Overview: Rfam assigns this 110-nucleotide RNA sequence from Desulfosporosinus youngiae to the family "c-di-GMP-I riboswitch aptamer". Rfam links the family to the GO term cyclic-di-GMP binding.
[Rfam]
Nucleotides: 110
Stems, first nucleotide, its partner, number of pairs: 012037002017032006041104004046100003049095003056089002059086001
Number, partner (000 for none) and nucleotide at each position: 001000g002000u003000u004000c005000g006000g007000u008000u009000g010000g011000u012037g013036u014000a015000a016000a017032c018031u019030u020029u021028g022027u023000a024000a025000a026000a027022g028021c029020a030019a031018a032017g033000g034000g035000c036013g037012c038000u039000a040000a041104a042103g043102u044101c045000a046100u047099g048098g049095g050094u051093c052000u053000a054000a055000g056089g057088c058000u059086a060000u061000u062000g063000g064000a065000a066000g067000c068000u069000g070000u071000c072000a073000a074000c075000g076000c077000a078000c079000u080000u081000c082000g083000a084000a085000u086059u087000u088057g089056c090000u091000a092000u093051g094050a095049u096000c097000g098048c099047c100046a101044g102043g103042c104041u105000a106000c107000a108000a109000g110000c
NCBI's taxonomy places the organism under Bacteria, Bacillota, Desulfitobacteriaceae, Desulfosporosinus, Desulfosporosinus youngiae.